The record is a 133-nucleotide RNA from Jaculus jaculus, which matches "Small nucleolar RNA SNORA1" in Rfam.
[Rfam]
RNA sequence: AGCCUCAUUGUAGAUGAAAAUGGACACUGUUGGUCAGUGUCCAGAAUUGCUCAGCGUGGCUAACUUGAAACACAGGUCAUGCUUCCAUCACAGUAAACAUAGUGCAGUGGUGACAAUGAGACCUGUAACAUUG
Numbered sequence: 001a002g003c004c005u006c007a008u009u010g011u012a013g014a015u016g017a018a019a020a021u022g023g024a025c026a027c028u029g030u031u032g033g034u035c036a037g038u039g040u041c042c043a044g045a046a047u048u049g050c051u052c053a054g055c056g057u058g059g060c061u062a063a064c065u066u067g068a069a070a071c072a073c074a075g076g077u078c079a080u081g082c083u084u085c086c087a088u089c090a091c092a093g094u095a096a097a098c099a100u101a102g103u104g105c106a107g108u109g110g111u112g113a114c115a116a117u118g119a120g121a122c123c124u125g126u127a128a129c130a131u132u133g
Base pairs, nucleotide, nucleotide: 002060003059004058006056008054021043022042023041024040025039026038027037072126073125074124075123076122086112087111088110089109090108091107

Rfam links the family to the GO terms nucleolus and RNA processing.
Rfam describes the family as follows. ACA1 is a member of the H/ACA class of snoRNA that guide the sites of modification of uridines to pseudouridines.